Description: Rfam assigns this 86-nucleotide RNA sequence from Streptomyces sp. BR123 to the family "ZMP/ZTP riboswitch aptamer (pfl RNA motif)". NCBI's taxonomy places the organism under Bacteria, Bacillati, Actinomycetota, Actinomycetes, Streptomyces.
RNA sequence: GGCACGGGCCGUGACUGGCGUUCGGGUGGAUCACCACCGGGGAGCGGCCCGGCGUACGUCACACCGUCGUGCGCCCGGCGUACCGC
Numbered sequence: 001g002g003c004a005c006g007g008g009c010c011g012u013g014a015c016u017g018g019c020g021u022u023c024g025g026g027u028g029g030a031u032c033a034c035c036a037c038c039g040g041g042g043a044g045c046g047g048c049c050c051g052g053c054g055u056a057c058g059u060c061a062c063a064c065c066g067u068c069g070u071g072c073g074c075c076c077g078g079c080g081u082a083c084c085g086c
Base pairs, nucleotide, nucleotide: 005051006050007049008048009047010046011045012044015041016040017075018074019073020072021071026037027036028035029034065080066079067078068077